[Rfam]
RNA sequence: AGGUAGCAUUGAAAGAGAGGAUGGCUACCCGAUACAAUCUUCAUAGAGUAAUUGUUUGUCAUUUCCUGCUUGUGGUGUUGUUAGCAAGUCCUGCAGAGUCUCAAAUGACAAGACAGCUGC
Numbered sequence: 001a002g003g004u005a006g007c008a009u010u011g012a013a014a015g016a017g018a019g020g021a022u023g024g025c026u027a028c029c030c031g032a033u034a035c036a037a038u039c040u041u042c043a044u045a046g047a048g049u050a051a052u053u054g055u056u057u058g059u060c061a062u063u064u065c066c067u068g069c070u071u072g073u074g075g076u077g078u079u080g081u082u083a084g085c086a087a088g089u090c091c092u093g094c095a096g097a098g099u100c101u102c103a104a105a106u107g108a109c110a111a112g113a114c115a116g117c118u119g120c
Stems, first nucleotide, its partner, number of pairs: 002029002005026002007023004055113003068099003071095005077089003
Dot-bracket structure: .((.((((((.........)))).)).)).........................(((..........((((((((.(((.......))).))))).)))...........))).......
Source information
Small nucleolar RNA snoR104: a 120-nucleotide RNA sequence from Oryza brachyantha. It scores 73 bits against the family's covariance model. Lineage of the source: Eukaryota > Petrosaviidae > Oryzoideae > Oryzeae > Oryza. By type it is an H/ACA-box small nucleolar RNA. The family has 8 seed sequences and 612 matches in Rfam 15.1. The literature on the family includes a 2002 paper in Curr Biol by Marker et al., "Experimental RNomics: identification of 140 candidates for small non-messenger RNAs in the plant Arabidopsis thaliana".